[Rfam]
Background
The family of this 149-nucleotide RNA from Ipomoea nil is "small nucleolar RNA snoR134". The match comes from Rfam's covariance-model search (102 bits). Lineage of the source: Eukaryota > eudicotyledons > lamiids > Solanales > Ipomoea. Gene Ontology terms of the family: nucleolus and RNA processing. For this family Rfam cites "Mining small RNA sequencing data: a new approach to identify small nucleolar RNAs in Arabidopsis" (Chen and Wu, Nucleic Acids Res, 2009). By type it is an H/ACA-box small nucleolar RNA.
RNA sequence: AUGCAUGUGGCUACCCGGGCUCGUCUGAGAUCGAUGUGAAGAAGAGAAGUCCCAAUGCUCAUGCUAAAUUAAACUUGCCGCUAGUGUUGCAGCUUAGCCCUUUGUACCUCUUUCCAUGGCUGAUCUGUGUCAAUUCAACGGCUACAUUU
Numbered sequence: 001a002u003g004c005a006u007g008u009g010g011c012u013a014c015c016c017g018g019g020c021u022c023g024u025c026u027g028a029g030a031u032c033g034a035u036g037u038g039a040a041g042a043a044g045a046g047a048a049g050u051c052c053c054a055a056u057g058c059u060c061a062u063g064c065u066a067a068a069u070u071a072a073a074c075u076u077g078c079c080g081c082u083a084g085u086g087u088u089g090c091a092g093c094u095u096a097g098c099c100c101u102u103u104g105u106a107c108c109u110c111u112u113u114c115c116a117u118g119g120c121u122g123a124u125c126u127g128u129g130u131c132a133a134u135u136c137a138a139c140g141g142c143u144a145c146a147u148u149u
Stems, first nucleotide, its partner, number of pairs: 003064005010058002017052005022046001024042003077142004082137001085132002088129005097120003